[Rfam]
RNA sequence: GAUAAAGGGGGUGAAAAGCCCCCUCACCGAAAACCCAAGGUUUCCUGCGCAACGUUCAUCGGCGCAGGGUGAGUCGGCCCCUAAGGCGAGGCAGAAAUGCGUAGUCGAUGGGAAACAGGUUAAUAUUCCUGUACUUGGUAUUAGUGCGAUGUGGGGACGGAGAAGGUUACCUCAGCCAACGGUUGGAAGAGUUGGUUUAAGUGUGUAGGUGUGUAGCUUAGGCAAAUCCGGGCUACUUUAACACUGAGGCAUGAUGACGAGUCUACUUGUAGACGAAGUGAGCGAUACCCUGCUUCCAAGAAAAGCCACUAAGCUUCAGCUAAUAUCGAACCGUACCGCAAACCGACACAGGUGGGUAGGAAGAGUAUUCUAAGGUGCU
Numbered sequence: 001g002a003u004a005a006a007g008g009g010g011g012u013g014a015a016a017a018g019c020c021c022c023c024u025c026a027c028c029g030a031a032a033a034c035c036c037a038a039g040g041u042u043u044c045c046u047g048c049g050c051a052a053c054g055u056u057c058a059u060c061g062g063c064g065c066a067g068g069g070u071g072a073g074u075c076g077g078c079c080c081c082u083a084a085g086g087c088g089a090g091g092c093a094g095a096a097a098u099g100c101g102u103a104g105u106c107g108a109u110g111g112g113a114a115a116c117a118g119g120u121u122a123a124u125a126u127u128c129c130u131g132u133a134c135u136u137g138g139u140a141u142u143a144g145u146g147c148g149a150u151g152u153g154g155g156g157a158c159g160g161a162g163a164a165g166g167u168u169a170c171c172u173c174a175g176c177c178a179a180c181g182g183u184u185g186g187a188a189g190a191g192u193u194g195g196u197u198u199a200a201g202u203g204u205g206u207a208g209g210u211g212u213g214u215a216g217c218u219u220a221g222g223c224a225a226a227u228c229c230g231g232g233c234u235a236c237u238u239u240a241a242c243a244c245u246g247a248g249g250c251a252u253g254a255u256g257a258c259g260a261g262u263c264u265a266c267u268u269g270u271a272g273a274c275g276a277a278g279u280g281a282g283c284g285a286u287a288c289c290c291u292g293c294u295u296c297c298a299a300g301a302a303a304a305g306c307c308a309c310u311a312a313g314c315u316u317c318a319g320c321u322a323a324u325a326u327c328g329a330a331c332c333g334u335a336c337c338g339c340a341a342a343c344c345g346a347c348a349c350a351g352g353u354g355g356g357u358a359g360g361a362a363g364a365g366u367a368u369u370c371u372a373a374g375g376u377g378c379u
Stems, first nucleotide, its partner, number of pairs: 006024006025377004033357004039337002044068006053061002075333003080111002085106003089102001091100003115132005135329011146314002151309004159296004165289003171282004175196006197257002201252004208245003213236007221229002261274005343352002359371004
Bacterial large subunit ribosomal RNA: a 379-nucleotide part of an RNA from Chitinibacter fontanus. It scores 2842 bits against the family's covariance model. The family's consensus secondary structure is taken from published work.